[Rfam]
Shown here is an 83-nucleotide sequence from Streptomyces formicae, a member of the family "nrdJ RNA". It scores 82 bits against the family's covariance model. The source organism's lineage runs through Bacteria, Bacillati, Kitasatosporales, Streptomycetaceae and Streptomyces.

Nucleotides: 083
Stems, first nucleotide, its partner, number of pairs: 004035013050072008
Number, partner (000 for none) and nucleotide at each position: 001000a002000c003000c004035u005034g006033u007032u008031g009030u010029g011028g012027g013026u014025g015024u016023c017000c018000u019000c020000u021000g022000c023016g024015a025014u026013g027012c028011c029010c030009g031008c032007g033006a034005c035004a036000u037000c038000a039000g040000a041000c042000a043000c044000a045000c046000a047000u048000c049000c050072g051071u052070g053069c054068c055067a056066c057065g058000g059000g060000a061000a062000g063000a064000a065057c066056g067055u068054g069053g070052c071051a072050c073000u074000u075000c076000a077000g078000g079000g080000c081000g082000u083000u